RNA sequence: UUCUAAAGGGUGAGAAGUUAGCACGCUCAUGUGGUUAUUAUUCAUAAGCGUAUAGCUUUUCCCCUUUGGCG
Numbered sequence: 001u002u003c004u005a006a007a008g009g010g011u012g013a014g015a016a017g018u019u020a021g022c023a024c025g026c027u028c029a030u031g032u033g034g035u036u037a038u039u040a041u042u043c044a045u046a047a048g049c050g051u052a053u054a055g056c057u058u059u060u061c062c063c064c065u066u067u068g069g070c071g
Stems, first nucleotide, its partner, number of pairs: 003069005010063001012061001014059002018055003026048002029045003